[Rfam]
RNA sequence: GGGCUGGGAUGAGAUCUUAGAGAAAGUCAUGCACCACUCUGAAAUUCGUGAUGAUAAUUUCUCAAACCCAUUACAAUUUCUGAGCCC
Number, nucleotide and partner (000 for none) at each position: 001g087002g086003g085004c084005u000006g000007g000008g000009a000010u000011g000012a000013g000014a000015u000016c000017u000018u000019a000020g000021a000022g000023a000024a000025a000026g000027u000028c000029a000030u000031g000032c000033a000034c000035c000036a000037c000038u000039c000040u000041g000042a000043a000044a000045u000046u000047c000048g000049u000050g000051a000052u000053g000054a000055u000056a000057a000058u000059u000060u000061c000062u000063c000064a000065a000066a000067c000068c000069c000070a000071u000072u000073a000074c000075a000076a000077u000078u000079u000080c000081u000082g000083a000084g004085c003086c002087c001
Shown here is an 87-nucleotide RNA from Dorcoceras hygrometricum, a member of the family "Small nucleolar RNA Z221/R21b". Gene Ontology terms of the family: nucleolus and RNA processing. A reference for the family is Chen et al. (2003), "The high diversity of snoRNAs in plants: identification and comparative study of 120 snoRNA genes from Oryza sativa", Nucleic Acids Res. The family has 12 seed sequences and 588 matches in Rfam 15.1. The family's RNA type in Rfam is C/D-box small nucleolar RNA. The family's consensus secondary structure was predicted with WAR.